[Rfam]
RNA sequence: GGUGGCACCAAGCAUGAGGCAACAACUGCAUUACUUUCAAGGAAGUUACAAAAUCUAUGGGUCUUCAUAAUCGUGACUUUCUUGCAAGUUGUGCAGUUGCUGUCUCAAGCUUGCUGACUCC
Numbered sequence: 001g002g003u004g005g006c007a008c009c010a011a012g013c014a015u016g017a018g019g020c021a022a023c024a025a026c027u028g029c030a031u032u033a034c035u036u037u038c039a040a041g042g043a044a045g046u047u048a049c050a051a052a053a054u055c056u057a058u059g060g061g062u063c064u065u066c067a068u069a070a071u072c073g074u075g076a077c078u079u080u081c082u083u084g085c086a087a088g089u090u091g092u093g094c095a096g097u098u099g100c101u102g103u104c105u106c107a108a109g110c111u112u113g114c115u116g117a118c119u120c121c
Base pairs, nucleotide, nucleotide: 009113010112011111012110013109016106017105019103020102029093030092031091034088036086038084039083040082043079044078045077047075048074049073
MIR444 microRNA precursor family: a 121-nucleotide RNA from Hordeum vulgare. Rfam's curators put it in the seed alignment.